[Rfam]
RNA sequence: AUCUUAUUAAGAGUGAUUGAGGGACAGGCCCUAUGAAAUCCAGCAACCAAAAGCAUAGCUUUAAGGUGCUAAAUCCUGCAGGUAUACCUGAGAGAUAAGAG
Numbered sequence: 001a002u003c004u005u006a007u008u009a010a011g012a013g014u015g016a017u018u019g020a021g022g023g024a025c026a027g028g029c030c031c032u033a034u035g036a037a038a039u040c041c042a043g044c045a046a047c048c049a050a051a052a053g054c055a056u057a058g059c060u061u062u063a064a065g066g067u068g069c070u071a072a073a074u075c076c077u078g079c080a081g082g083u084a085u086a087c088c089u090g091a092g093a094g095a096u097a098a099g100a101g
Stems, first nucleotide, its partner, number of pairs: 002100007013041001015040003021031003025078004042070004047066002049062003074093001079090004